[Rfam]
RNA: Glycine riboswitch aptamer
Organism: Faucicola atlantae
RNA sequence: GUACACACAUCUGGAGAGCAUGGCAGGUUUAUUUUUCUCACUAGCUGCCAUCACCGAAGGGGAAAAAACUGUUUUACCACAUGAUGGUUGGCUUUAAACGGUUGAAAAUCUCAGGUCACAGGACAGAUAGGGCAAA
Numbered sequence: 001g002u003a004c005a006c007a008c009a010u011c012u013g014g015a016g017a018g019c020a021u022g023g024c025a026g027g028u029u030u031a032u033u034u035u036u037c038u039c040a041c042u043a044g045c046u047g048c049c050a051u052c053a054c055c056g057a058a059g060g061g062g063a064a065a066a067a068a069c070u071g072u073u074u075u076a077c078c079a080c081a082u083g084a085u086g087g088u089u090g091g092c093u094u095u096a097a098a099c100g101g102u103u104g105a106a107a108a109u110c111u112c113a114g115g116u117c118a119c120a121g122g123a124c125a126g127a128u129a130g131g132g133c134a135a136a
Stems, first nucleotide, its partner, number of pairs: 006131001009128005020051007053116003056112002060110002066103002
Dot-bracket structure: .....(..(((((......(((((((..................))))))).(((((..((....((..................................)).....)))).))).......)))))..).....